The family of this 98-nucleotide sequence from Anaerobacillus arseniciselenatis is "pan motif". It scores 65 bits against the family's covariance model. The base pairs follow the family's consensus structure, which is taken from published work.
[Rfam]
RNA sequence: UGGGCAGUAUCUUUUGGAACUGCACCACUAAAAGUUUUUGUCGAAAGCGUUAAAAAAAACUAUAGUCUGCCUUGAUCCAUUUGGACUAGGACAGAGGG
Numbered sequence: 001u002g003g004g005c006a007g008u009a010u011c012u013u014u015u016g017g018a019a020c021u022g023c024a025c026c027a028c029u030a031a032a033a034g035u036u037u038u039u040g041u042c043g044a045a046a047g048c049g050u051u052a053a054a055a056a057a058a059a060c061u062a063u064a065g066u067c068u069g070c071c072u073u074g075a076u077c078c079a080u081u082u083g084g085a086c087u088a089g090g091a092c093a094g095a096g097g098g
Base pairs, nucleotide, nucleotide: 001027002026003025004023005022006021007020008019010018011017067094068093069092070090071089072088074086076085077084078083